Purine riboswitch aptamer: a 102-nucleotide RNA from Lacicoccus alkaliphilus. The organism belongs to Lacicoccus alkaliphilus, within Bacteria. It scores 82 bits against the family's covariance model. About the family: Riboswitches are metabolite binding domains within certain messenger RNAs that serve as precision sensors for their corresponding targets.

RNA sequence: UCAUUAAAAUAAAAAGUCGCUCAUAUAAUCGCAGUAAUAUGGUCUGCAAGUUUCUACCGGGAAGCCUUAAAGUUCCCGACUAUGGGUGGGUAACUGCCGUGG
Numbered sequence: 001u002c003a004u005u006a007a008a009a010u011a012a013a014a015a016g017u018c019g020c021u022c023a024u025a026u027a028a029u030c031g032c033a034g035u036a037a038u039a040u041g042g043u044c045u046g047c048a049a050g051u052u053u054c055u056a057c058c059g060g061g062a063a064g065c066c067u068u069a070a071a072g073u074u075c076c077c078g079a080c081u082a083u084g085g086g087u088g089g090g091u092a093a094c095u096g097c098c099g100u101g102g
Stems, first nucleotide, its partner, number of pairs: 018088008029049001031047004058078006